[Rfam]
RNA sequence: CAGUGGGGGAGAAGGCCCACCGGGGAAGAAGUCAGAGCCCCGUAGCUUGGAUAGCAGUGGUAAAGGUAACUGAACCACUGAAGUCUAUUGACAAAGCCAUAUUAAGUAUGGUGAGCGAGUGGUCAGGCCAUAACGAAA
Numbered sequence: 001c002a003g004u005g006g007g008g009g010a011g012a013a014g015g016c017c018c019a020c021c022g023g024g025g026a027a028g029a030a031g032u033c034a035g036a037g038c039c040c041c042g043u044a045g046c047u048u049g050g051a052u053a054g055c056a057g058u059g060g061u062a063a064a065g066g067u068a069a070c071u072g073a074a075c076c077a078c079u080g081a082a083g084u085c086u087a088u089u090g091a092c093a094a095a096g097c098c099a100u101a102u103u104a105a106g107u108a109u110g111g112u113g114a115g116c117g118a119g120u121g122g123u124c125a126g127g128c129c130a131u132a133a134c135g136a137a138a
Base pairs, nucleotide, nucleotide: 021042022041023040024039025038050089051088052087053086054085055080056079057078058077059076060075064071065070096112097111098110099109100108101107115131117129